[Rfam]
RNA sequence: CCGCCGACCUCCAAGGGACGUGCGACGGAGUCCCGGGAGCGACGGUUACCAACAAACAAGCCUCCAUCGCACCGCAUGAAUUUUCACGCGGCCCUAUCACGGGAGAGAACGCUGAGCGUAACAAC
Numbered sequence: 001c002c003g004c005c006g007a008c009c010u011c012c013a014a015g016g017g018a019c020g021u022g023c024g025a026c027g028g029a030g031u032c033c034c035g036g037g038a039g040c041g042a043c044g045g046u047u048a049c050c051a052a053c054a055a056a057c058a059a060g061c062c063u064c065c066a067u068c069g070c071a072c073c074g075c076a077u078g079a080a081u082u083u084u085c086a087c088g089c090g091g092c093c094c095u096a097u098c099a100c101g102g103g104a105g106a107g108a109a110c111g112c113u114g115a116g117c118g119u120a121a122c123a124a125c
Stems, first nucleotide, its partner, number of pairs: 001045003005041002008039001010037003072091004077086003
Background: atpB RNA: a 125-nucleotide sequence from Corynebacterium resistens. Lineage of the source: Bacteria > Actinomycetota > Mycobacteriales > Corynebacteriaceae > Corynebacterium resistens. Rfam classes the family as a cis-regulatory element. The sequence is in the family's curated seed alignment.